[Rfam]
RNA sequence: UGGGAGUGAUGGAUCCUGGGCUGUGUCAGUCAGGUCCUUGUGCUCCGGGGCCUGCACUGUUGGAAUCGUGCUUCUGGGACCACACAGCUCCCA
Numbered sequence: 001u002g003g004g005a006g007u008g009a010u011g012g013a014u015c016c017u018g019g020g021c022u023g024u025g026u027c028a029g030u031c032a033g034g035u036c037c038u039u040g041u042g043c044u045c046c047g048g049g050g051c052c053u054g055c056a057c058u059g060u061u062g063g064a065a066u067c068g069u070g071c072u073u074c075u076g077g078g079a080c081c082a083c084a085c086a087g088c089u090c091c092c093a
Stems, first nucleotide, its partner, number of pairs: 001093006008085001010082003015077002018074003022070004026064002030062001031059003036054001040052001042051003